The record is a 63-nucleotide RNA sequence from Ketogulonicigenium vulgare, which matches "L2-Alphaproteobacteria ribosomal protein leader" in Rfam.
On this family, see Eckert and Weinberg, BMC Microbiol 2020: "Discovery of 20 novel ribosomal leader candidates in bacteria and archaea".
By type it is a cis-regulatory leader.
The sequence is in the family's curated seed alignment.
[Rfam]
RNA sequence: CGGGACCUUCGGGGCCCUUCACGUGUCGGGCAUGACUGCCCGCAAAGCAAACGGAAGACAGAA
Numbered sequence: 001c002g003g004g005a006c007c008u009u010c011g012g013g014g015c016c017c018u019u020c021a022c023g024u025g026u027c028g029g030g031c032a033u034g035a036c037u038g039c040c041c042g043c044a045a046a047g048c049a050a051a052c053g054g055a056a057g058a059c060a061g062a063a
Stems, first nucleotide, its partner, number of pairs: 002017003006014003025043001027042005